[Rfam]
Shown here is a 325-nucleotide RNA from Atlantisia rogersi, a member of the family "7SK RNA". Rfam describes the family as follows. 7SK was discovered as an abundant small nuclear RNA in the mid-70s but a possible function has only recently been suggested. Two independent studies have found that 7SK RNA binds the CDK9/cyclin T complex (known as elongation factor P-TEFb). P-TEFb activates transcription by phosphorylating the C-terminal domain of RNA polymerase II. This process is negatively regulated by the 7SK RNP. The secondary structure of 7SK RNA shown here was proposed by Wasserman and Steitz on the basis of chemical modification and enzymatic cleavage experiments. The base pairs follow the family's consensus structure, which is taken from published work. Rfam classes the family as a non-coding RNA gene.

RNA sequence: AAGAGGGUGAUCUGGCUGCAACAUCUGCCACCCCAUCAAUCACCAGGGUUGAUUAGGCUGAUCUGGCUGGCUAAGCAGGUGUCCCCUUCCUCCCUCACAGCUUCAUGUGUGUCCCUCCCCAAGCUGUGCACUCAGGUGAAGAGGGUGAACUUCCCUGAUAGAGACAAACCAUUCAGCAGUCUGAGGGUAUAUGGUAGCAGUGCUCCCCUGCUAGAACCUCCAAACAAGCUCAAGACCCAUGUCUAGGAGAAUGUAGAGUAGUCAGGCUUCCAAGGCUGCAGGCACAUCCAAGUGAGGAGCUGCAUGGGGCAGUCUACCACUGUUU
Numbered sequence: 001a002a003g004a005g006g007g008u009g010a011u012c013u014g015g016c017u018g019c020a021a022c023a024u025c026u027g028c029c030a031c032c033c034c035a036u037c038a039a040u041c042a043c044c045a046g047g048g049u050u051g052a053u054u055a056g057g058c059u060g061a062u063c064u065g066g067c068u069g070g071c072u073a074a075g076c077a078g079g080u081g082u083c084c085c086c087u088u089c090c091u092c093c094c095u096c097a098c099a100g101c102u103u104c105a106u107g108u109g110u111g112u113c114c115c116u117c118c119c120c121a122a123g124c125u126g127u128g129c130a131c132u133c134a135g136g137u138g139a140a141g142a143g144g145g146u147g148a149a150c151u152u153c154c155c156u157g158a159u160a161g162a163g164a165c166a167a168a169c170c171a172u173u174c175a176g177c178a179g180u181c182u183g184a185g186g187g188u189a190u191a192u193g194g195u196a197g198c199a200g201u202g203c204u205c206c207c208c209u210g211c212u213a214g215a216a217c218c219u220c221c222a223a224a225c226a227a228g229c230u231c232a233a234g235a236c237c238c239a240u241g242u243c244u245a246g247g248a249g250a251a252u253g254u255a256g257a258g259u260a261g262u263c264a265g266g267c268u269u270c271c272a273a274g275g276c277u278g279c280a281g282g283c284a285c286a287u288c289c290a291a292g293u294g295a296g297g298a299g300c301u302g303c304a305u306g307g308g309g310c311a312g313u314c315u316a317c318c319a320c321u322g323u324u325u
Base pairs, nucleotide, nucleotide: 001102003096004095005094006093007092009089010088014086015085021082022081023080024079025078026077027076028075031070032069033066034065035064039062040061041060043057044056112167115163116162117161118135121132123131137157138156143154144153145152197267198266203261204260206258208256209255210254211253218249219248220247221246224244226242228240290325291324292323294320296318297317299313300312301311302310303309
It scores 232 bits against the family's covariance model. Lineage of the source: Eukaryota > Eumetazoa > Theropoda > Rallidae > Atlantisia.